mir-3473 microRNA precursor family: a 94-nucleotide sequence from Octodon degus.
Taxonomically the source falls in Octodon (Eukaryota, Chordata, Eutheria, Octodontidae).
A search with the family's covariance model found it, with a score of 75 bits.

[Rfam]
RNA sequence: ACCACUGAGCCAUCUCUCCAGCCCCCCAAAUAUAUUUUUUAAAAAAUCCUGGAUUAAAAGAAUAUAAUGGGGGCUGGUGAGAUGGCUCAGUGGU
Numbered sequence: 001a002c003c004a005c006u007g008a009g010c011c012a013u014c015u016c017u018c019c020a021g022c023c024c025c026c027c028a029a030a031u032a033u034a035u036u037u038u039u040u041a042a043a044a045a046a047u048c049c050u051g052g053a054u055u056a057a058a059a060g061a062a063u064a065u066a067a068u069g070g071g072g073g074c075u076g077g078u079g080a081g082a083u084g085g086c087u088c089a090g091u092g093g094u
Base pairs, nucleotide, nucleotide: 002093003092004091005090006089007088008087009086010085011084012083013082014081015080016079018077019076020075021074022073023072024071025070026069